Group I catalytic intron: a 357-nucleotide sequence from Ustilaginoidea virens. The source organism's lineage runs through Eukaryota, Dikarya, saccharomyceta, Clavicipitaceae and Ustilaginoidea. A search with the family's covariance model found it, with a score of 90 bits. From the family's description: Group I catalytic introns are large self-splicing ribozymes. They catalyse their own excision from mRNA, tRNA and rRNA precursors in a wide range of organisms. The core secondary structure consists of 9 paired regions (P1-P9). These fold to essentially two domains - the P4-P6 domain (formed from the stacking of P5, P4, P6 and P6a helices) and the P3-P9 domain (formed from the P8, P3, P7 and P9 helices).

RNA sequence: CUAUCUUCGAGAGGGUCAAGUAACGUAAAAGGCGUUGCUAGUGGGCGGCGCGAGCCCCCGCGACAUCAUCAAAUUGCGGGAACACCCUAAAGCUGGUCGCUACUAAGCGGGCGUCGAAAGACAGCCCGUGGCCGGGGUAAUGACCUCAGGGUACAGUAAAAACGCGCCAGAUGGAACAAUGGGCAAUCCGCAGCCAAGUCCUACGUCCGGUCCCCCCCCUCCCCUGGGGUUGGGGGGCGCCUGGAUAUGGAUGCAGUUCAACGACUAAACGGUGAUGGGCUGGCGCAGGGAGGUGCGGCCUGCACGCUCCUGCGCCCCGGCUUAAGAUAUAGUCUACUCCUGCUCCGAGAGGAGAGG
Numbered sequence: 001c002u003a004u005c006u007u008c009g010a011g012a013g014g015g016u017c018a019a020g021u022a023a024c025g026u027a028a029a030a031g032g033c034g035u036u037g038c039u040a041g042u043g044g045g046c047g048g049c050g051c052g053a054g055c056c057c058c059c060g061c062g063a064c065a066u067c068a069u070c071a072a073a074u075u076g077c078g079g080g081a082a083c084a085c086c087c088u089a090a091a092g093c094u095g096g097u098c099g100c101u102a103c104u105a106a107g108c109g110g111g112c113g114u115c116g117a118a119a120g121a122c123a124g125c126c127c128g129u130g131g132c133c134g135g136g137g138u139a140a141u142g143a144c145c146u147c148a149g150g151g152u153a154c155a156g157u158a159a160a161a162a163c164g165c166g167c168c169a170g171a172u173g174g175a176a177c178a179a180u181g182g183g184c185a186a187u188c189c190g191c192a193g194c195c196a197a198g199u200c201c202u203a204c205g206u207c208c209g210g211u212c213c214c215c216c217c218c219c220u221c222c223c224c225u226g227g228g229g230u231u232g233g234g235g236g237g238c239g240c241c242u243g244g245a246u247a248u249g250g251a252u253g254c255a256g257u258u259c260a261a262c263g264a265c266u267a268a269a270c271g272g273u274g275a276u277g278g279g280c281u282g283g284c285g286c287a288g289g290g291a292g293g294u295g296c297g298g299c300c301u302g303c304a305c306g307c308u309c310c311u312g313c314g315c316c317c318c319g320g321c322u323u324a325a326g327a328u329a330u331a332g333u334c335u336a337c338u339c340c341u342g343c344u345c346c347g348a349g350a351g352g353a354g355a356g357g
Stems, first nucleotide, its partner, number of pairs: 017025001064277005070271001075192006085183003193257002198252004206245005261335001263334005279321005285315001343354004